[Rfam]
Shown here is a 107-nucleotide sequence from Turnera subulata, a member of the family "Plant small nucleolar RNA R71". The family's consensus secondary structure was predicted with PFOLD.

RNA sequence: AGACCAUGAUGUGGGCAUCUUCGGAGAAGAUCCUUGUACCGUUCCCAUCCAUCAUAAAGAGAUUCACCAUCCUUCUGAGCAAAGGUUAAAAUCUCGUUUCUGAGUUU
Number, nucleotide and partner (000 for none) at each position: 001a107002g000003a105004c104005c102006a101007u000008g000009a000010u000011g000012u000013g000014g000015g000016c000017a000018u000019c000020u000021u000022c000023g000024g000025a000026g000027a000028a000029g000030a000031u000032c000033c000034u000035u000036g000037u000038a000039c000040c000041g000042u000043u000044c000045c000046c000047a000048u000049c000050c000051a000052u000053c000054a000055u000056a000057a074058a073059g000060a000061g000062a000063u000064u000065c000066a000067c000068c000069a000070u000071c000072c000073u058074u057075c000076u000077g000078a000079g000080c000081a000082a000083a000084g000085g000086u000087u000088a000089a000090a000091a000092u000093c000094u000095c000096g000097u000098u000099u000100c000101u006102g005103a000104g004105u003106u000107u001

Gene Ontology terms of the family: nucleolus and RNA processing.